[Rfam]
RNA sequence: AAUUAACACCAGGGGAGCGAUACUGCUGAGAAAGGUUAAGACCUGACCCUUAUUACCUGAAUCUGGAUAAUACCAGCGCAGGGAGGUAGAGUAUGCGUUAU
Numbered sequence: 001a002a003u004u005a006a007c008a009c010c011a012g013g014g015g016a017g018c019g020a021u022a023c024u025g026c027u028g029a030g031a032a033a034g035g036u037u038a039a040g041a042c043c044u045g046a047c048c049c050u051u052a053u054u055a056c057c058u059g060a061a062u063c064u065g066g067a068u069a070a071u072a073c074c075a076g077c078g079c080a081g082g083g084a085g086g087u088a089g090a091g092u093a094u095g096c097g098u099u100a101u
Stems, first nucleotide, its partner, number of pairs: 008087003011050004016044001017026003034043003056082004063076004